[Rfam]
The family of this 193-nucleotide RNA from Alectura lathami is "Connexin-43 internal ribosome entry site (IRES)". A search with the family's covariance model found it, with a score of 112 bits. The family's consensus secondary structure is taken from published work. This family represents the connexin-43 internal ribosome entry site (IRES) which allows cap independent translation during conditions such as heat shock and stress.
Nucleotides: 193
Stems, first nucleotide, its partner, number of pairs: 003019002007015003029146003034141001036139001038137003041132004049125004055120002072100006101116001103114003156188001158186001161182003166176003
Number, partner (000 for none) and nucleotide at each position: 001000a002000a003019c004018u005000u006000u007015u008014a009013c010000g011000a012000g013009g014008u015007a016000u017000c018004a019003g020000c021000a022000c023000u024000u025000u026000u027000c028000u029146u030145u031144c032000a033000g034141u035000a036139g037000u038137g039136g040135g041132g042131a043130a044129g045000g046000a047000a048000g049125g050124a051123u052122g053000a054000a055120a056119a057000c058000u059000a060000c061000a062000a063000a064000a065000c066000a067000g068000c069000a070000g071000u072100a073099g074098a075097c076096u077095u078000u079000u080000a081000a082000a083000g084000u085000u086000u087000a088000a089000a090000u091000a092000g093000a094000c095077a096076g097075g098074u099073c100072u101116g102000a103114g104113u105112g106000c107000c108000u109000g110000a111000a112105c113104g114103u115000g116101c117000u118000c119056u120055u121000c122052c123051a124050u125049u126000u127000u128000a129044c130043u131042u132041u133000a134000a135040c136039c137038c138000u139036c140000c141034a142000g143000a144031g145030a146029a147000g148000u149000g150000u151000c152000c153000u154000g155000a156188g157000c158186c159000a160000g161182u162181u163180u164000c165000a166176c167175u168174g169000c170000u171000c172000a173000u174168c175167a176166g177000c178000a179000a180163g181162g182161g183000u184000a185000a186158g187000u188156u189000g190000a191000a192000a193000g